[Rfam]
RNA sequence: CAACGAACGAAAGGAGGUGAUCCAGUGUCUCAUUGUCAUCAGCCGCUGUCGGCGACCAGGACCUGGACCGUUACCUCCGGCGAGUGCAUCUAGCGCUCGCGGGAUACGCUACAGGUUUCGUCGGACCGCGGUUCGGCAAUGGAAGGGCCGCCCUCGUCGGGGCGGCCCU
Numbered sequence: 001c002a003a004c005g006a007a008c009g010a011a012a013g014g015a016g017g018u019g020a021u022c023c024a025g026u027g028u029c030u031c032a033u034u035g036u037c038a039u040c041a042g043c044c045g046c047u048g049u050c051g052g053c054g055a056c057c058a059g060g061a062c063c064u065g066g067a068c069c070g071u072u073a074c075c076u077c078c079g080g081c082g083a084g085u086g087c088a089u090c091u092a093g094c095g096c097u098c099g100c101g102g103g104a105u106a107c108g109c110u111a112c113a114g115g116u117u118u119c120g121u122c123g124g125a126c127c128g129c130g131g132u133u134c135g136g137c138a139a140u141g142g143a144a145g146g147g148c149c150g151c152c153c154u155c156g157u158c159g160g161g162g163c164g165g166c167c168c169u
Stems, first nucleotide, its partner, number of pairs: 016023002031141007044060001048056003061071002072108001075103001077102003084096004118131003122128002144169011
RNA: caulobacter sRNA CC2171
Organism: Methylobacterium gnaphalii